[Rfam]
RNA sequence: CUGCAUGUUGCACCCCGGGCUUUUCUGAAAUAUACAAUGAAGAAAAAAGCCCCAAUGCUCAUGCUAAAUUUGUGCCAUUUAGUGUUGCAGGUUCGCUUUGUUUCUUCAACAGCUUAUUUGUGUCAAAAUAACUGCCACAUUU
Numbered sequence: 001c002u003g004c005a006u007g008u009u010g011c012a013c014c015c016c017g018g019g020c021u022u023u024u025c026u027g028a029a030a031u032a033u034a035c036a037a038u039g040a041a042g043a044a045a046a047a048a049g050c051c052c053c054a055a056u057g058c059u060c061a062u063g064c065u066a067a068a069u070u071u072g073u074g075c076c077a078u079u080u081a082g083u084g085u086u087g088c089a090g091g092u093u094c095g096c097u098u099u100g101u102u103u104c105u106u107c108a109a110c111a112g113c114u115u116a117u118u119u120g121u122g123u124c125a126a127a128a129u130a131a132c133u134g135c136c137a138c139a140u141u142u
Stems, first nucleotide, its partner, number of pairs: 003064005010058002017052005022046002024043003074135002078131002083125002086122006095113003
small nucleolar RNA snoR134: a 142-nucleotide RNA from Papaver somniferum.
The match comes from Rfam's covariance-model search (112 bits).
Rfam classes the family as an H/ACA-box small nucleolar RNA.
For this family Rfam cites "Mining small RNA sequencing data: a new approach to identify small nucleolar RNAs in Arabidopsis" (Chen and Wu, Nucleic Acids Res, 2009).
Pairs were carried over by alignment from the consensus structure, which was predicted with RNAalifold.